[Rfam]
RNA sequence: UAAGGCGUUUUCGCCGCAUCCGACAUUCGCACACGAUGCCUGAUGCGACGCUGGCGCGUCUUAUCAGGCC
Numbered sequence: 001u002a003a004g005g006c007g008u009u010u011u012c013g014c015c016g017c018a019u020c021c022g023a024c025a026u027u028c029g030c031a032c033a034c035g036a037u038g039c040c041u042g043a044u045g046c047g048a049c050g051c052u053g054g055c056g057c058g059u060c061u062u063a064u065c066a067g068g069c070c
Stems, first nucleotide, its partner, number of pairs: 001018001004015004038069008047060005
RNA: Nucleoid-associated noncoding RNA 4 (CssrE)